[Rfam]
RNA sequence: CAAUUGUAACUUUGGUAAGUCGCUCUGGAUAAGAGCAUCUGCUAAAUGCCAAUAA
Numbered sequence: 001c002a003a004u005u006g007u008a009a010c011u012u013u014g015g016u017a018a019g020u021c022g023c024u025c026u027g028g029a030u031a032a033g034a035g036c037a038u039c040u041g042c043u044a045a046a047u048g049c050c051a052a053u054a055a
Stems, first nucleotide, its partner, number of pairs: 013044001014042001016041002022036005
A member of the RNA family "UnaL2 LINE 3' element" from Megalops atlanticus, 55 nucleotides long. It is annotated as a cis-regulatory element. Pairs were carried over by alignment from the consensus structure, which is taken from published work.